RNA sequence: GGUCAAGAGUUCCGCUGUCUGGCUCGGCAGGCGGGACAGCAACCCUCGUACGGCGGUGGGGUGCUCCCGAGCAAGACCGGGUGUCCGCGACCAGCGGGCGCAAGUGCUACCC
Numbered sequence: 001g002g003u004c005a006a007g008a009g010u011u012c013c014g015c016u017g018u019c020u021g022g023c024u025c026g027g028c029a030g031g032c033g034g035g036a037c038a039g040c041a042a043c044c045c046u047c048g049u050a051c052g053g054c055g056g057u058g059g060g061g062u063g064c065u066c067c068c069g070a071g072c073a074a075g076a077c078c079g080g081g082u083g084u085c086c087g088c089g090a091c092c093a094g095c096g097g098g099c100g101c102a103a104g105u106g107c108u109a110c111c112c
Stems, first nucleotide, its partner, number of pairs: 001078004009037007020029002038065003043061003047056001081101008
The record is a 112-nucleotide RNA from Nocardiopsis eucommiae, which matches "SAM (S-adenosyl methionine) riboswitch aptamer" in Rfam. It scores 70 bits against the family's covariance model. The family's consensus secondary structure is taken from published work.